[Rfam]
About this RNA:
The record is a 98-nucleotide sequence from Limosilactobacillus coleohominis, which matches "Purine riboswitch aptamer" in Rfam.
RNA sequence: UACUUACAAUUAAAUAUUGCCUAUAUAUUUCCGUAAUAUGGUCGGACGUUUCUACCUCAUGCCGUAAAUAUGAGACUAUAAGCAUCGUUACAAUGAAC
Numbered sequence: 001u002a003c004u005u006a007c008a009a010u011u012a013a014a015u016a017u018u019g020c021c022u023a024u025a026u027a028u029u030u031c032c033g034u035a036a037u038a039u040g041g042u043c044g045g046a047c048g049u050u051u052c053u054a055c056c057u058c059a060u061g062c063c064g065u066a067a068a069u070a071u072g073a074g075a076c077u078a079u080a081a082g083c084a085u086c087g088u089u090a091c092a093a094u095g096a097a098c
Stems, first nucleotide, its partner, number of pairs: 018084003022080004030046004056074006